[Rfam]
RNA sequence: CCAGUCGGCUCCUCGUACGGGGUCCGUCCACGCCGCCCCGGCGGCAGGAUGCAUGGACCCGCGAUAACCCGACGGGGUUUUGAGGAGUCCGCACAUG
Numbered sequence: 001c002c003a004g005u006c007g008g009c010u011c012c013u014c015g016u017a018c019g020g021g022g023u024c025c026g027u028c029c030a031c032g033c034c035g036c037c038c039c040g041g042c043g044g045c046a047g048g049a050u051g052c053a054u055g056g057a058c059c060c061g062c063g064a065u066a067a068c069c070c071g072a073c074g075g076g077g078u079u080u081u082g083a084g085g086a087g088u089c090c091g092c093a094c095a096u097g
Stems, first nucleotide, its partner, number of pairs: 014063003020060006026050003033044004